Notes:
Shown here is an 87-nucleotide sequence, a member of the family "Small nucleolar RNA R72". The base pairs follow the family's consensus structure, which was predicted with PFOLD. The literature on the family includes a 2003 paper in Nucleic Acids Res by Chen et al., "The high diversity of snoRNAs in plants: identification and comparative study of 120 snoRNA genes from Oryza sativa". It is one of the family's seed sequences. Gene Ontology terms of the family: RNA processing and nucleolus. The family's RNA type in Rfam is C/D-box small nucleolar RNA. About the family: snoR72 is a C/D box small nucleolar RNA, which acts as a methylation guide for 25S ribosomal RNA in Arabidopsis.
RNA sequence: UUGCAAAUGAUGAGUUAAAUCACCAUUGAUAAAAGAAGCUCAAUUGAGCAGUGUUGGAAAUCUAAAACUUCCAUGACUCUGAUGCAA
Numbered sequence: 001u002u003g004c005a006a007a008u009g010a011u012g013a014g015u016u017a018a019a020u021c022a023c024c025a026u027u028g029a030u031a032a033a034a035g036a037a038g039c040u041c042a043a044u045u046g047a048g049c050a051g052u053g054u055u056g057g058a059a060a061u062c063u064a065a066a067a068c069u070u071c072c073a074u075g076a077c078u079c080u081g082a083u084g085c086a087a
Base pairs, nucleotide, nucleotide: 001087002086003085004084005083038049039048040047041046
Dot-bracket structure: (((((................................((((....)))).................................)))))